Source information:
Shown here is a 191-nucleotide RNA from Fontibacillus phaseoli, a member of the family "c-di-AMP riboswitch aptamer (ydaO/yuaA leader)". Lineage of the source: Bacteria > Bacillota > Bacilli > Paenibacillaceae > Fontibacillus.

Nucleotides: 191
Base pairs, nucleotide, nucleotide: 011175012174013173014172018036019035020034021033022032023031024030025029037170038169039168040167041166042165047091092155093154094153100129101128102127103126104125105124106123107122108121109120110119111118112117132149133148134147135146
Number, partner (000 for none) and nucleotide at each position: 001000a002000u003000u004000c005000u006000u007000g008000a009000u010000u011175c012174g013173c014172u015000g016000a017000a018036u019035u020034u021033c022032c023031c024030g025029u026000a027000u028000c029025g030024c031023g032022g033021g034020a035019a036018a037170g038169c039168g040167g041166g042165g043000g044000a045000a046000c047091c048000g049000a050000a051000u052000a053000c054000c055000g056000g057000g058000c059000g060000u061000a062000c063000c064000a065000g066000g067000c068000a069000a070000a071000a072000c073000a074000g075000c076000c077000g078000a079000a080000a081000c082000g083000a084000a085000c086000g087000g088000u089000a090000a091047g092155g093154g094153g095000u096000g097000a098000a099000u100129c101128c102127g103126c104125a105124g106123c107122a108121u109120g110119u111118u112117c113000u114000g115000c116000a117112g118111a119110a120109c121108a122107u123106g124105c125104u126103g127102c128101g129100g130000a131000g132149g133148g134147g135146u136000g137000a138000c139000u140000c141000u142000c143000g144000c145000c146135a147134c148133c149132c150000u151000a152000a153094u154093c155092c156000g157000a158000c159000a160000g161000c162000u163000a164000a165042c166041c167040u168039c169038g170037u171000a172014a173013g174012c175011g176000u177000a178000g179000u180000c181000c182000g183000a184000g185000a186000g187000a188000g189000g190000a191000a